[Rfam]
RNA sequence: GCCGAGCUCAGUAAUGUGAGCUUGUGACCCAAAUGGGGGCAAUAAAUUGGUUGGACUUUGGGCCUGACUGACUAGCUGGGUCACAGGUGGCUCUUUUCUGGCUUGGCCGUUCCAAGUAGAGAGCUGAGCCGUAUGGCUUGAGCGUAGGCUCGGGCUGACCGGCUCCUAAAGAGGAGGGCACCGCGUCAGGCUGGCUUCACAGAGCAGCGAUUACUUCCCUCUCUCUACAGUGGGAGGAUUACAAGCUGGUGCUUUCUGGGCCUAUUAAAGCUAGCUGGGCUUGCCUAAUUGAACAAUCAAUUUU
Numbered sequence: 001g002c003c004g005a006g007c008u009c010a011g012u013a014a015u016g017u018g019a020g021c022u023u024g025u026g027a028c029c030c031a032a033a034u035g036g037g038g039g040c041a042a043u044a045a046a047u048u049g050g051u052u053g054g055a056c057u058u059u060g061g062g063c064c065u066g067a068c069u070g071a072c073u074a075g076c077u078g079g080g081u082c083a084c085a086g087g088u089g090g091c092u093c094u095u096u097u098c099u100g101g102c103u104u105g106g107c108c109g110u111u112c113c114a115a116g117u118a119g120a121g122a123g124c125u126g127a128g129c130c131g132u133a134u135g136g137c138u139u140g141a142g143c144g145u146a147g148g149c150u151c152g153g154g155c156u157g158a159c160c161g162g163c164u165c166c167u168a169a170a171g172a173g174g175a176g177g178g179c180a181c182c183g184c185g186u187c188a189g190g191c192u193g194g195c196u197u198c199a200c201a202g203a204g205c206a207g208c209g210a211u212u213a214c215u216u217c218c219c220u221c222u223c224u225c226u227a228c229a230g231u232g233g234g235a236g237g238a239u240u241a242c243a244a245g246c247u248g249g250u251g252c253u254u255u256c257u258g259g260g261c262c263u264a265u266u267a268a269a270g271c272u273a274g275c276u277g278g279g280c281u282u283g284c285c286u287a288a289u290u291g292a293a294c295a296a297u298c299a300a301u302u303u304u
Stems, first nucleotide, its partner, number of pairs: 001040003004023007028037003044303010056291001058288006066280001068278003072274006078263003081259003086255001089253002092251001098249008107237002110235005116228008126165006134157010166171001173218005184209003191202003
RNA: Plant signal recognition particle RNA
Organism: Erythranthe guttata